[Rfam]
The family of this 87-nucleotide sequence from a Clostridia bacterium is "S10-Clostridia ribosomal protein leader".

RNA sequence: UGACAUACGAUGAAGCAGGAGGUUGCCGAACAUAUGAGUCGGGUUAAUUUCUGCUGAGAAUGUCCGAUUCAAGAAACCGGGCGACAG
Numbered sequence: 001u002g003a004c005a006u007a008c009g010a011u012g013a014a015g016c017a018g019g020a021g022g023u024u025g026c027c028g029a030a031c032a033u034a035u036g037a038g039u040c041g042g043g044u045u046a047a048u049u050u051c052u053g054c055u056g057a058g059a060a061u062g063u064c065c066g067a068u069u070c071a072a073g074a075a076a077c078c079g080g081g082c083g084a085c086a087g
Stems, first nucleotide, its partner, number of pairs: 015054003019051004026042004061086004068081003
A reference for the family is Eckert and Weinberg (2020), "Discovery of 20 novel ribosomal leader candidates in bacteria and archaea", BMC Microbiol. It scores 37 bits against the family's covariance model.